[Rfam]
RNA sequence: UGCCCUGUAGUUUAAUUGGCAGAACACCGGUUUUUGGUACCGAUAGUUGAGGUUCGAGUCCUUGCGGGGCAA
Numbered sequence: 001u002g003c004c005c006u007g008u009a010g011u012u013u014a015a016u017u018g019g020c021a022g023a024a025c026a027c028c029g030g031u032u033u034u035u036g037g038u039a040c041c042g043a044u045a046g047u048u049g050a051g052g053u054u055c056g057a058g059u060c061c062u063u064g065c066g067g068g069g070c071a072a
Stems, first nucleotide, its partner, number of pairs: 001071007010025004028042004048064005
tRNA: a 72-nucleotide RNA sequence from Bernardetia litoralis. Lineage of the source: Bacteria > Bacteroidota > Cytophagales > Bernardetiaceae > Bernardetia litoralis. Rfam classes the family as a transfer RNA.